[Rfam]
Annotation
Glutamine riboswitch aptamer (glnA leader): a 51-nucleotide sequence.
RNA sequence: AACGUUCAACCAUUAUGGUCGGAAGUAGGUUUGAAACCGAAGGAACGCAUU
Numbered sequence: 001a002a003c004g005u006u007c008a009a010c011c012a013u014u015a016u017g018g019u020c021g022g023a024a025g026u027a028g029g030u031u032u033g034a035a036a037c038c039g040a041a042g043g044a045a046c047g048c049a050u051u
Stems, first nucleotide, its partner, number of pairs: 003047005009019004022048001028038003

For this family Rfam cites "Bacterial aptamers that selectively bind glutamine" (Ames and Breaker, RNA Biol, 2011). The base pairs follow the family's consensus structure, which is taken from published work.